RNA sequence: CUAUGUAUAAUGCCGAAUCCUUAUAAGGUACGGGGGACCCAAUGCGUAUAUGGGGGUGAAUCCGCUAACGCGGUAGGGCGUUCUUAACCUCUUUUCUUUGGCCCGAAUCCGACAGCUAACCCCGGAGGCUAACGCCUAAGGUUUU
Number, nucleotide and partner (000 for none) at each position: 001c000002u000003a000004u000005g000006u000007a000008u000009a000010a000011u000012g129013c128014c127015g000016a000017a000018u000019c028020c027021u000022u000023a000024u000025a000026a000027g020028g019029u000030a000031c124032g123033g122034g121035g120036g000037a000038c000039c000040c053041a000042a000043u000044g000045c000046g000047u000048a000049u000050a000051u000052g000053g040054g110055g109056g108057u000058g000059a000060a000061u000062c073063c072064g071065c070066u000067a000068a000069c000070g065071c064072g063073g062074u000075a000076g104077g103078g102079c101080g000081u000082u000083c000084u000085u000086a000087a000088c000089c000090u000091c000092u000093u000094u000095u000096c000097u000098u000099u000100g000101g079102c078103c077104c076105g000106a000107a000108u056109c055110c054111g000112a000113c000114a000115g000116c000117u000118a000119a000120c035121c034122c033123c032124g031125g000126a000127g014128g013129c012130u000131a000132a000133c000134g000135c000136c000137u000138a000139a000140g000141g000142u000143u000144u000145u000

This 145-nucleotide RNA from Sporomusa silvacetica belongs to the Rfam family "c-di-AMP riboswitch aptamer (ydaO/yuaA leader)". The source organism's lineage runs through Bacteria, Bacillati, Bacillota, Sporomusa and Sporomusa silvacetica.